[Rfam]
RNA: c-di-AMP riboswitch aptamer (ydaO/yuaA leader)
RNA sequence: GCGUUUUAACCGCUGAAUUCCUGCAUGCAGGAAACGGGGGAACCAACCGGAUGGCAUAUCUAUGCCAUCCAUGGGGUGAAUCAUCGAUCAGCAGACUGGUUGAUGUAGGGCGACUCUCACGCCCGAAUCCGGCAGCUAACCUCGUAAGCGUUCCGAGAGAGGCGAC
Numbered sequence: 001g002c003g004u005u006u007u008a009a010c011c012g013c014u015g016a017a018u019u020c021c022u023g024c025a026u027g028c029a030g031g032a033a034a035c036g037g038g039g040g041a042a043c044c045a046a047c048c049g050g051a052u053g054g055c056a057u058a059u060c061u062a063u064g065c066c067a068u069c070c071a072u073g074g075g076g077u078g079a080a081u082c083a084u085c086g087a088u089c090a091g092c093a094g095a096c097u098g099g100u101u102g103a104u105g106u107a108g109g110g111c112g113a114c115u116c117u118c119a120c121g122c123c124c125g126a127a128u129c130c131g132g133c134a135g136c137u138a139a140c141c142u143c144g145u146a147a148g149c150g151u152u153c154c155g156a157g158a159g160a161g162g163c164g165a166c
Stems, first nucleotide, its partner, number of pairs: 011150004018033005034145006044073002074130003082105010108124004